Shown here is a 50-nucleotide RNA from Agromyces sp. NDB4Y10, a member of the family "Guanidine-II riboswitch aptamer (mini-ykkC)". The family has 72 seed sequences and 1,589 matches in Rfam 15.1. From the family's description: Simpler in structure and has fewer highly conserved nucleotide positions than the ykkC-yxkD leader. The source organism's lineage runs through Bacteria, Bacillati, Micrococcales, Microbacteriaceae and Agromyces. The match comes from Rfam's covariance-model search (38 bits).

[Rfam]
RNA sequence: CGCCGAGGACGACCUCGACGCCGAGCUCGCCUCGCUCGGGGAGGGCCUCG
Numbered sequence: 001c002g003c004c005g006a007g008g009a010c011g012a013c014c015u016c017g018a019c020g021c022c023g024a025g026c027u028c029g030c031c032u033c034g035c036u037c038g039g040g041g042a043g044g045g046c047c048u049c050g
Base pairs, nucleotide, nucleotide: 001020002019004017005016006015007014008013037050038049039048040047041046